This 128-nucleotide sequence from Desulfosporosinus sp. Sb-LF belongs to the Rfam family "c-di-AMP riboswitch aptamer (ydaO/yuaA leader)".
A reference for the family is Barrick et al. (2004), "New RNA motifs suggest an expanded scope for riboswitches in bacterial genetic control", Proc Natl Acad Sci U S A.
RNA sequence: AAUAAUAGAUUGCUUAAUUUCCUAAAGGAAAACGGGGGAACCACAUCUUGGGGUGAAUCGCCAAAUGGCGUAGAGCAGUUUCAGCUCGAACCCGACAGCUAACCUCGUAAGCGUUGAAACACGUUAAC
Number, nucleotide and partner (000 for none) at each position: 001a000002a000003u000004a000005a000006u000007a000008g000009a000010u000011u113012g112013c111014u110015u000016a000017a000018u031019u030020u029021c000022c000023u000024a000025a000026a000027g000028g000029a020030a019031a018032a108033c107034g106035g105036g104037g103038g000039a000040a000041c000042c050043a049044c000045a000046u000047c000048u000049u043050g042051g093052g092053g091054u000055g000056a000057a000058u000059c070060g069061c068062c067063a000064a000065a000066u000067g062068g061069c060070g059071u000072a000073g087074a086075g085076c084077a000078g000079u000080u000081u000082c000083a000084g076085c075086u074087c073088g000089a000090a000091c053092c052093c051094g000095a000096c000097a000098g000099c000100u000101a000102a000103c037104c036105u035106c034107g033108u032109a000110a014111g013112c012113g011114u000115u000116g000117a000118a000119a000120c000121a000122c000123g000124u000125u000126a000127a000128c000
About this RNA: Pairs were carried over by alignment from the consensus structure.